[Rfam]
RNA: L31-Firmicutes ribosomal protein leader
RNA sequence: CUUUGCCGAACUGUACCUUGAGUCCCAAGGCGAAAGGAG
Numbered sequence: 001c002u003u004u005g006c007c008g009a010a011c012u013g014u015a016c017c018u019u020g021a022g023u024c025c026c027a028a029g030g031c032g033a034a035a036g037g038a039g
Stems, first nucleotide, its partner, number of pairs: 001030005008025001010023003
Dot-bracket structure: (((((..(.(((........))).)))))).........